A member of the RNA family "mir-8830 microRNA precursor family" from Canis lupus, 95 nucleotides long. The source organism's lineage runs through Eukaryota, Eumetazoa, Euteleostomi, Dipnotetrapodomorpha and Canis lupus.
RNA sequence: CAGGACCCGCUUCCCUCGUCGCUGAGGCAGGACCGACUUCCCUCAUGACCGAGGCAGACCCGGCUUCCCUCAUGACCGAGGCAGACCCGGCUUCC
Numbered sequence: 001c002a003g004g005a006c007c008c009g010c011u012u013c014c015c016u017c018g019u020c021g022c023u024g025a026g027g028c029a030g031g032a033c034c035g036a037c038u039u040c041c042c043u044c045a046u047g048a049c050c051g052a053g054g055c056a057g058a059c060c061c062g063g064c065u066u067c068c069c070u071c072a073u074g075a076c077c078g079a080g081g082c083a084g085a086c087c088c089g090g091c092u093u094c095c
Stems, first nucleotide, its partner, number of pairs: 003092002006090002009087001011085002014081005019075003023072005029066003033063003038057002041054004